[Rfam]
RNA sequence: CGAGGACACCCACGAACCACUGGAUGGAGACGGGGGACCCACCGGUCCGCCGACAAGCAGACCAGGAACGCCGGUAUCGGUUCCUUGGGGUGAAGUCUGAAGCGCUCGACACACCGUCGAACGACGAAGACCGGGCAACCUCUCCUGCCCGAACCCGACAGCUGACCUCGCAGGCGCUGACGAGAGGAACU
Numbered sequence: 001c002g003a004g005g006a007c008a009c010c011c012a013c014g015a016a017c018c019a020c021u022g023g024a025u026g027g028a029g030a031c032g033g034g035g036g037a038c039c040c041a042c043c044g045g046u047c048c049g050c051c052g053a054c055a056a057g058c059a060g061a062c063c064a065g066g067a068a069c070g071c072c073g074g075u076a077u078c079g080g081u082u083c084c085u086u087g088g089g090g091u092g093a094a095g096u097c098u099g100a101a102g103c104g105c106u107c108g109a110c111a112c113a114c115c116g117u118c119g120a121a122c123g124a125c126g127a128a129g130a131c132c133g134g135g136c137a138a139c140c141u142c143u144c145c146u147g148c149c150c151g152a153a154c155c156c157g158a159c160a161g162c163u164g165a166c167c168u169c170g171c172a173g174g175c176g177c178u179g180a181c182g183a184g185a186g187g188a189a190c191u
Stems, first nucleotide, its partner, number of pairs: 001173001007027001031170005040087002088156003096130003133150004
RNA: c-di-AMP riboswitch aptamer (ydaO/yuaA leader)
Organism: Mycobacterium adipatum